The record is a 68-nucleotide sequence from Nostoc sp. 'Peltigera malacea cyanobiont' DB3992, which matches "Nitrogen stress-induced RNA 4" in Rfam. Rfam classes the family as a small RNA. On this family, see Klahn et al., Proc Natl Acad Sci U S A 2015: "The sRNA NsiR4 is involved in nitrogen assimilation control in cyanobacteria by targeting glutamine synthetase inactivating factor IF7". Rfam describes the family as follows. Former name SyR12, is a cyanobacterial non-coding RNA which plays role in the regulation of Glutamine synthetase (GS), a key enzyme in biological nitrogen assimilation. Taxonomically the source falls in Nostoc cyanobionts (Bacteria, Bacillati, Nostocales, Nostocaceae).
RNA sequence: AGCAGAUUAAUCUGUAAUUACCCUCCGAUUGCUUAACCAAACCGCCCUAUUAUAUUUAGUGGCGGUUU
Numbered sequence: 001a002g003c004a005g006a007u008u009a010a011u012c013u014g015u016a017a018u019u020a021c022c023c024u025c026c027g028a029u030u031g032c033u034u035a036a037c038c039a040a041a042c043c044g045c046c047c048u049a050u051u052a053u054a055u056u057u058a059g060u061g062g063c064g065g066u067u068u
Base pairs, nucleotide, nucleotide: 003014004013005012039068040067041066042065043064044063045062046061